[Rfam]
RNA sequence: CACAGCAGGAUGAGGAGAAGGGCUGAAAUGUUGCUGACCCUGGUCCUUCUCUGAUGGUGGCUGGG
Numbered sequence: 001c002a003c004a005g006c007a008g009g010a011u012g013a014g015g016a017g018a019a020g021g022g023c024u025g026a027a028a029u030g031u032u033g034c035u036g037a038c039c040c041u042g043g044u045c046c047u048u049c050u051c052u053g054a055u056g057g058u059g060g061c062u063g064g065g
Stems, first nucleotide, its partner, number of pairs: 001065001003063003015051010030038003
RNA: Selenocysteine insertion sequence 1